[Rfam]
RNA: Bacterial RNase P class A
RNA sequence: UGAGCCGACCGGGCAAACGCGUUCCGUCGAACCGGCCCCUUUAUGGGACUAGGCGCGGGCCGAGGAAAGUCCGGACUCCACAGAGCACGGUGGUUGCUAACAGCAACCCGGGGUGACCCGCGGGAAAGUGCAACAGAGAGUAGACCGCCGCGUGCCCUCGAUUGCGCUUCGGCGCAGCGUGGGAAGCGGUAAGGGUGAAAGGGUGCGGUAAGAGCGCACCAGCACCGUCAGCGAUGGCGGUGGCUGGGUAAACCCCACUGGGAGCAAGGCAUCACGGCCCGCCACGUUAGCGGGCCCGAUCAGGCGUUAGUAGGUUGCUCGCCGAAGCCUGAAGGUAGCUGCUUGAGCCAACUGGCAACGGUUGGCCUGGAUGGAUGUUUGUCACCGCGCCUCGUGCGCGGCACAGAAUCCGGCUUAUAGGUUGGCUCAUUCG
Numbered sequence: 001u002g003a004g005c006c007g008a009c010c011g012g013g014c015a016a017a018c019g020c021g022u023u024c025c026g027u028c029g030a031a032c033c034g035g036c037c038c039c040u041u042u043a044u045g046g047g048a049c050u051a052g053g054c055g056c057g058g059g060c061c062g063a064g065g066a067a068a069g070u071c072c073g074g075a076c077u078c079c080a081c082a083g084a085g086c087a088c089g090g091u092g093g094u095u096g097c098u099a100a101c102a103g104c105a106a107c108c109c110g111g112g113g114u115g116a117c118c119c120g121c122g123g124g125a126a127a128g129u130g131c132a133a134c135a136g137a138g139a140g141u142a143g144a145c146c147g148c149c150g151c152g153u154g155c156c157c158u159c160g161a162u163u164g165c166g167c168u169u170c171g172g173c174g175c176a177g178c179g180u181g182g183g184a185a186g187c188g189g190u191a192a193g194g195g196u197g198a199a200a201g202g203g204u205g206c207g208g209u210a211a212g213a214g215c216g217c218a219c220c221a222g223c224a225c226c227g228u229c230a231g232c233g234a235u236g237g238c239g240g241u242g243g244c245u246g247g248g249u250a251a252a253c254c255c256c257a258c259u260g261g262g263a264g265c266a267a268g269g270c271a272u273c274a275c276g277g278c279c280c281g282c283c284a285c286g287u288u289a290g291c292g293g294g295c296c297c298g299a300u301c302a303g304g305c306g307u308u309a310g311u312a313g314g315u316u317g318c319u320c321g322c323c324g325a326a327g328c329c330u331g332a333a334g335g336u337a338g339c340u341g342c343u344u345g346a347g348c349c350a351a352c353u354g355g356c357a358a359c360g361g362u363u364g365g366c367c368u369g370g371a372u373g374g375a376u377g378u379u380u381g382u383c384a385c386c387g388c389g390c391c392u393c394g395u396g397c398g399c400g401g402c403a404c405a406g407a408a409u410c411c412g413g414c415u416u417a418u419a420g421g422u423u424g425g426c427u428c429a430u431u432c433g
Stems, first nucleotide, its partner, number of pairs: 001429010011418001012383007020062002023059005067416003071413005076264004083320004088260005093107005108122001109120004123255002128253002130249002145194002147190005153184001155182001202220006222244001223242008268340003300332006311325001313323003347366008